About this RNA:
Small Cajal body specific RNA 21: a 139-nucleotide RNA sequence from Microtus ochrogaster. It is annotated as a small Cajal body RNA. The organism belongs to Microtus, within Eukaryota. scaRNAs are a specific class of small nuclear RNAs which localise to the Cajal bodies and guide the modification of RNA polymerase II transcribed spliceosomal RNAs U1, U2, U4, U5 and U12. Pairs were carried over by alignment from the consensus structure, which was predicted with RNAalifold. The match comes from Rfam's covariance-model search (128 bits).
RNA sequence: AGGCUCGAUUUCCCAGGAUGUGGGCUCAGCCUACCCCACUUCCCCUCAGCAGAGCCUAGAAUAAAGGGGCCAGGCUUCUCCCUCGUAGGAGGGGUGUUUGAGGAAGAAGCCUCACCCAGGCUAGCCUGGCCUCACAUUU
Numbered sequence: 001a002g003g004c005u006c007g008a009u010u011u012c013c014c015a016g017g018a019u020g021u022g023g024g025c026u027c028a029g030c031c032u033a034c035c036c037c038a039c040u041u042c043c044c045c046u047c048a049g050c051a052g053a054g055c056c057u058a059g060a061a062u063a064a065a066g067g068g069g070c071c072a073g074g075c076u077u078c079u080c081c082c083u084c085g086u087a088g089g090a091g092g093g094g095u096g097u098u099u100g101a102g103g104a105a106g107a108a109g110c111c112u113c114a115c116c117c118a119g120g121c122u123a124g125c126c127u128g129g130c131c132u133c134a135c136a137u138u139u
Stems, first nucleotide, its partner, number of pairs: 002056005016043003020039005066133005072127003077120003087112003
Dot-bracket structure: .(((((.........(((.(((((..........))))).)))........))))).........(((((.(((..(((.......(((....................))).....)))....))).)))))......